[Rfam]
RNA sequence: GUGUUAUGGCUGAAAGGCCGACGCCGACAGGCGGAGCGAGCAGUCAGCAGAGGCCGUAGUAGCCGCUGGUUUGGGGCGAAGGGC
Numbered sequence: 001g002u003g004u005u006a007u008g009g010c011u012g013a014a015a016g017g018c019c020g021a022c023g024c025c026g027a028c029a030g031g032c033g034g035a036g037c038g039a040g041c042a043g044u045c046a047g048c049a050g051a052g053g054c055c056g057u058a059g060u061a062g063c064c065g066c067u068g069g070u071u072u073g074g075g076g077c078g079a080a081g082g083g084c
Stems, first nucleotide, its partner, number of pairs: 001028002004023001007020005044051002053084003062077003066073001
Group II catalytic intron D1-D4-1: an 84-nucleotide sequence from Allochromatium vinosum. Lineage of the source: Bacteria > Pseudomonadati > Pseudomonadota > Allochromatium > Allochromatium vinosum. It scores 43 bits against the family's covariance model. Group II introns are found in rRNA, tRNA and mRNA of organelles in fungi, plants and protists, and also in mRNA in bacteria. Pairs were carried over by alignment from the consensus structure.